RNA sequence: ACACAUGAGAGGAGGUGGUCCGCAGUUGUAUAGCUACGGGACUCGUGAGGUGGCUGUCCGCUAGGACCACCAACCGGUGACCCCCUGGUGAAUACCAGGCAGCCACCCGACCCCCGGACUCCGAGCACUUGGUCCCGCUCGGCCCCGCUACUCCUAGCGCGGGGAAGCAGUCCGGGGGUCGUCCUAC
Numbered sequence: 001a002c003a004c005a006u007g008a009g010a011g012g013a014g015g016u017g018g019u020c021c022g023c024a025g026u027u028g029u030a031u032a033g034c035u036a037c038g039g040g041a042c043u044c045g046u047g048a049g050g051u052g053g054c055u056g057u058c059c060g061c062u063a064g065g066a067c068c069a070c071c072a073a074c075c076g077g078u079g080a081c082c083c084c085c086u087g088g089u090g091a092a093u094a095c096c097a098g099g100c101a102g103c104c105a106c107c108c109g110a111c112c113c114c115c116g117g118a119c120u121c122c123g124a125g126c127a128c129u130u131g132g133u134c135c136c137g138c139u140c141g142g143c144c145c146c147g148c149u150a151c152u153c154c155u156a157g158c159g160c161g162g163g164g165a166a167g168c169a170g171u172c173c174g175g176g177g178g179u180c181g182u183c184c185u186a187c
Stems, first nucleotide, its partner, number of pairs: 014058006059090007108181013121142006
RNA: Actinobacteria sRNA Ms_IGR-5